Rfam assigns this 82-nucleotide RNA from Branchiostoma floridae to the family "mir-31 microRNA precursor family". Rfam 15.1 lists 1,181 matches to the family in 783 species. Its family is annotated with RISC complex and gene silencing by miRNA in the Gene Ontology. A reference for the family is Ma et al. (2023), "Structure of pre-miR-31 reveals an active role in Dicer processing", bioRxiv [Preprint]. The family's consensus secondary structure was predicted with RNAalifold. It is one of the family's seed sequences.
RNA sequence: GGGCGAGGAAAUGGCAAGAUGUUGGCAUAGCUGUUUGGAGUUCUGGGUCGGCUGUGCUGACAAACUGCCAUUUCCCGUUCAC
Numbered sequence: 001g002g003g004c005g006a007g008g009a010a011a012u013g014g015c016a017a018g019a020u021g022u023u024g025g026c027a028u029a030g031c032u033g034u035u036u037g038g039a040g041u042u043c044u045g046g047g048u049c050g051g052c053u054g055u056g057c058u059g060a061c062a063a064a065c066u067g068c069c070a071u072u073u074c075c076c077g078u079u080c081a082c
Base pairs, nucleotide, nucleotide: 007075008074009073010072011071012070013069014068015067016066020062021061023059024058025057026056027055028054029053030052031051